[Rfam]
RNA sequence: AGGAGAUCAUAUGACUGGCGGAAAUGGAGUUUACCAUAGGGAGUAUGAUUGAUAAAGAGCCGACCGCCUGGGUAACAGUU
Number, nucleotide and partner (000 for none) at each position: 001a000002g000003g000004a000005g050006a049007u048008c047009a046010u045011a044012u043013g000014a000015c040016u039017g068018g067019c066020g065021g064022a000023a000024a037025u036026g035027g034028a000029g000030u000031u000032u000033a000034c027035c026036a025037u024038a000039g016040g015041g000042a000043g012044u011045a010046u009047g008048a007049u006050u005051g000052a000053u000054a000055a000056a000057g000058a000059g073060c072061c071062g000063a000064c021065c020066g019067c018068c017069u000070g000071g061072g060073u059074a000075a000076c000077a000078g000079u000080u000